RNA sequence: CAAAGAGUAGACAAGGUGCGUAAAGUGUUAAAGGAUGGGAAGUUGCCUUUAAACGAAAAUAGGUCAUUGCGGUACCUUGUCGCUUCCGCUUG
Dot-bracket structure: ..(((....((((((((((((...((.(((((((...[[[[[...)))))))))...(((.....)))))).))))))))).]]]]].))).
Numbered sequence: 001c002a003a004a005g006a007g008u009a010g011a012c013a014a015g016g017u018g019c020g021u022a023a024a025g026u027g028u029u030a031a032a033g034g035a036u037g038g039g040a041a042g043u044u045g046c047c048u049u050u051a052a053a054c055g056a057a058a059a060u061a062g063g064u065c066a067u068u069g070c071g072g073u074a075c076c077u078u079g080u081c082g083c084u085u086c087c088g089c090u091u092g
Stems, first nucleotide, its partner, number of pairs: 003091003010081009019071003025054002028052007038087005058068003
The record is a 92-nucleotide RNA sequence from Eubacterium callanderi, which matches "THF (Tetrahydrofolate) riboswitch aptamer" in Rfam.
A reference for the family is Ames et al. (2010), "A eubacterial riboswitch class that senses the coenzyme tetrahydrofolate", Chem Biol.
The organism belongs to Eubacterium, within Bacteria.
From the family's description: Tetrahydrofolate (THF) riboswitch was first reported for Ames et al. as an RNA motif in 5' untranslated (5'-UTR)regions of folate transport and biosynthesis genes in Firmicutes genomes.